Source information
The family of this 104-nucleotide RNA from Niabella drilacis is "SAM riboswitch aptamer (S box leader)".
[Rfam]
RNA sequence: UUCUUAUCCAGAAAGACCGAGGGACUUGACCCGAUGACGUCUUGGCAACCUCCGCAUUGCGCGGGAAGGUGCCACCUUCAACCACAAUUGUGGAAAGAUAAGUU
Numbered sequence: 001u002u003c004u005u006a007u008c009c010a011g012a013a014a015g016a017c018c019g020a021g022g023g024a025c026u027u028g029a030c031c032c033g034a035u036g037a038c039g040u041c042u043u044g045g046c047a048a049c050c051u052c053c054g055c056a057u058u059g060c061g062c063g064g065g066a067a068g069g070u071g072c073c074a075c076c077u078u079c080a081a082c083c084a085c086a087a088u089u090g091u092g093g094a095a096a097g098a099u100a101a102g103u104u
Stems, first nucleotide, its partner, number of pairs: 003102006013043005021032003026081004044073004049069002051065004077096001082093004
Description: The organism belongs to Niabella, within Bacteria. Pairs were carried over by alignment from the consensus structure, which is taken from published work.